Rfam assigns this 61-nucleotide RNA from Pristionchus pacificus to the family "mir-8364 microRNA precursor family". A search with the family's covariance model found it, with a score of 75 bits.
RNA sequence: UCUUCAUUUUACACACUAUCUCACCGGUCAGAGUGACGAGAGAGCGUACGAAAUGAAGAGA
Dot-bracket structure: (((((((..(..((.((.((((...............)))).)).))..)..)))))))..